This 98-nucleotide sequence from Clostridium tepidiprofundi belongs to the Rfam family "Purine riboswitch aptamer". The match comes from Rfam's covariance-model search (66 bits). The family has 133 seed sequences and 4,097 matches in Rfam 15.1.

RNA sequence: GAUUUUGAUGUACUUAAUUAUCAUAUAUUCCUUGAAUAUGGCAAGGAGUUUCUACAGGAAACCGUAAAUUUCUGACUAUGAGAGAUUAAGAUAGGAUU
Number, nucleotide and partner (000 for none) at each position: 001g000002a000003u000004u000005u000006u000007g000008a000009u000010g000011u000012a000013c000014u000015u000016a000017a000018u084019u083020a000021u081022c080023a079024u078025a077026u000027a000028u000029u047030c046031c045032u044033u043034g042035a000036a000037u000038a000039u000040g000041g000042c034043a033044a032045g031046g030047a029048g000049u000050u000051u000052c000053u000054a000055c000056a000057g073058g072059a071060a070061a069062c000063c000064g000065u000066a000067a000068a000069u061070u060071u059072c058073u057074g000075a000076c000077u025078a024079u023080g022081a021082g000083a019084g018085a000086u000087u000088a000089a000090g000091a000092u000093a000094g000095g000096a000097u000098u000
Clan: Purine riboswitches. The family's consensus secondary structure is taken from published work.